A member of the RNA family "SAM (S-adenosyl methionine) riboswitch aptamer" from Paeniglutamicibacter cryotolerans, 129 nucleotides long.
[Rfam]
RNA sequence: CUUCAAGACUCUUGGCUGCGUAACCACGCAAGGCUCCGACCCGCCAAGGACCAACCCGAACGUUGUUUGCCGGGUGGUUCGGAUGACGAAGCGGCCCGUGCGGCAGCCGCCGGCGGGCAAGGACAACCC
Numbered sequence: 001c002u003u004c005a006a007g008a009c010u011c012u013u014g015g016c017u018g019c020g021u022a023a024c025c026a027c028g029c030a031a032g033g034c035u036c037c038g039a040c041c042c043g044c045c046a047a048g049g050a051c052c053a054a055c056c057c058g059a060a061c062g063u064u065g066u067u068u069g070c071c072g073g074g075u076g077g078u079u080c081g082g083a084u085g086a087c088g089a090a091g092c093g094g095c096c097c098g099u100g101c102g103g104c105a106g107c108c109g110c111c112g113g114c115g116g117g118c119a120a121g122g123a124c125a126a127c128c129c
Stems, first nucleotide, its partner, number of pairs: 001091004009049001011048006032041002050078003055074003059068002094118006101112004
Taxonomically the source falls in Paeniglutamicibacter (Bacteria, Bacillati, Actinomycetota, Micrococcales). A search with the family's covariance model found it, with a score of 49 bits. SAM-IV is a mRNA element that regulates gene expression via direct sensing of S-adenosylmethionine (SAM or AdoMet). SAM-IV riboswitches share conserved nucleotide positions with the previously described SAM-I riboswitches sequence analysis and molecular recognition experiments suggest that SAM-I and SAM-IV riboswitches share similar ligand binding sites, but have different scaffolds. Its family is annotated with S-adenosylmethionine metabolic process and regulation of gene expression in the Gene Ontology. The family's consensus secondary structure is taken from published work. Rfam 15.1 lists 2,360 matches to the family in 1,305 species.